[Rfam]
RNA sequence: AUACCUUUCUCGGCCUUUUGGCUAAGAUCAAGUGUAGUAUCUAAUCUUAUCAGUUUAAUAUCUGAUAUGUGAGCAAUAGGCUCACUCGAUAUUAAUUUGAUUUUUGAAGGGGGAAACUCAUCAUAAUAGCUUGCUAUUGGGGUCUCCACGAUCACCUUGGAGUUGCACUGUUGACGUUGCCUGGUCACCAAUCU
Numbered sequence: 001a002u003a004c005c006u007u008u009c010u011c012g013g014c015c016u017u018u019u020g021g022c023u024a025a026g027a028u029c030a031a032g033u034g035u036a037g038u039a040u041c042u043a044a045u046c047u048u049a050u051c052a053g054u055u056u057a058a059u060a061u062c063u064g065a066u067a068u069g070u071g072a073g074c075a076a077u078a079g080g081c082u083c084a085c086u087c088g089a090u091a092u093u094a095a096u097u098u099g100a101u102u103u104u105u106g107a108a109g110g111g112g113g114a115a116a117c118u119c120a121u122c123a124u125a126a127u128a129g130c131u132u133g134c135u136a137u138u139g140g141g142g143u144c145u146c147c148a149c150g151a152u153c154a155c156c157u158u159g160g161a162g163u164u165g166c167a168c169u170g171u172u173g174a175c176g177u178u179g180c181c182u183g184g185u186c187a188c189c190a191a192u193c194u
Base pairs, nucleotide, nucleotide: 008027009026010025012023013022014021015020048067049066050065051064052063053062069085070084071083072082073081074080113146114145116143117142118141119140126137127136128135129134150186151185152184153183154182156179160175
RNA: U2 spliceosomal RNA
Organism: Artemisia annua